RNA sequence: UAGCCCGUGGUUCGAAACCAUCCCACGAUAAAAAACUAAGGAGAU
Numbered sequence: 001u002a003g004c005c006c007g008u009g010g011u012u013c014g015a016a017a018c019c020a021u022c023c024c025a026c027g028a029u030a031a032a033a034a035a036c037u038a039a040g041g042a043g044a045u
Stems, first nucleotide, its partner, number of pairs: 006027005016037001

Shown here is a 45-nucleotide sequence from Compostibacillus humi, a member of the family "PreQ1 (pre queuosine) riboswitch aptamer". This family is a bacterial riboswitch that binds to the metabolite preQ1, an intermediate in the biosynthesis of the modified nucleoside queuosine from GTP. One example of this riboswitch is located in the leader of the Bacillus subtilis ykvJKLM (queCDEF) operon which encodes four genes necessary for queuosine production. PreQ1 binding to the riboswitch aptamer is thought to induce premature transcription termination within the leader to down-regulate expression of these genes. The match comes from Rfam's covariance-model search (54 bits). For this family Rfam cites "Identification of four genes necessary for biosynthesis of the modified nucleoside queuosine" (Reader et al., J Biol Chem, 2004). The source organism's lineage runs through Bacteria, Bacillota, Bacilli, Bacillaceae and Compostibacillus.